[Rfam]
RNA sequence: UGAUCACCGCCCCAUCACGUUGCGUAUCCAGUUGAUAACGAAACACCGUCCUGCUCAGUGAUAGUAUCUUACAUGCCUGGCGUAUGCUCAUCGGAAACUGCGUAGUCAGACAGUUGACGGGCUCACGCUUUAUCGCUGGUGCU
Numbered sequence: 001u002g003a004u005c006a007c008c009g010c011c012c013c014a015u016c017a018c019g020u021u022g023c024g025u026a027u028c029c030a031g032u033u034g035a036u037a038a039c040g041a042a043a044c045a046c047c048g049u050c051c052u053g054c055u056c057a058g059u060g061a062u063a064g065u066a067u068c069u070u071a072c073a074u075g076c077c078u079g080g081c082g083u084a085u086g087c088u089c090a091u092c093g094g095a096a097a098c099u100g101c102g103u104a105g106u107c108a109g110a111c112a113g114u115u116g117a118c119g120g121g122c123u124c125a126c127g128c129u130u131u132a133u134c135g136c137u138g139g140u141g142c143u
Stems, first nucleotide, its partner, number of pairs: 025112001027110002031106001048077001050075001052073002058067003080103004117140002120137003
Dot-bracket structure: ........................(.((..(................(.(.((....(((....)))....)).).)..((((................))))..)..)).)....((.(((............))).))...
The record is a 143-nucleotide sequence from Atlantibacter hermannii, which matches "isrN Hfq binding RNA" in Rfam. A reference for the family is Padalon-Brauch et al. (2008), "Small RNAs encoded within genetic islands of Salmonella typhimurium show host-induced expression and role in virulence", Nucleic Acids Res. A search with the family's covariance model found it, with a score of 105 bits. NCBI's taxonomy places the organism under Bacteria, Gammaproteobacteria, Enterobacteriaceae, Atlantibacter, Atlantibacter hermannii. It is annotated as a small RNA.